[Rfam]
RNA sequence: AAAAUUUAAAAAGCGCCUGGGCUUAAAGUGUAUACUUUAAGCUGACGAGGACAGGGUUUAUCGAGUUAUCGGCGGGUGCCCUGCGGUUUCCUGCGACCGAUAAAGGACUGGUAAAACCACAGGCGACUGUGGCAUAGAGCAGUCUGGGCAGGGAG
Numbered sequence: 001a002a003a004a005u006u007u008a009a010a011a012a013g014c015g016c017c018u019g020g021g022c023u024u025a026a027a028g029u030g031u032a033u034a035c036u037u038u039a040a041g042c043u044g045a046c047g048a049g050g051a052c053a054g055g056g057u058u059u060a061u062c063g064a065g066u067u068a069u070c071g072g073c074g075g076g077u078g079c080c081c082u083g084c085g086g087u088u089u090c091c092u093g094c095g096a097c098c099g100a101u102a103a104a105g106g107a108c109u110g111g112u113a114a115a116a117c118c119a120c121a122g123g124c125g126a127c128u129g130u131g132g133c134a135u136a137g138a139g140c141a142g143u144c145u146g147g148g149c150a151g152g153g154a155g
Stems, first nucleotide, its partner, number of pairs: 020043008029034001052083005061072004084099005105145006117132006

About this RNA
Rfam assigns this 155-nucleotide RNA from Thermoanaerobacter brockii to the family "glmS glucosamine-6-phosphate activated ribozyme aptamer". It is annotated as a riboswitch. The organism belongs to Thermoanaerobacter brockii, within Bacteria.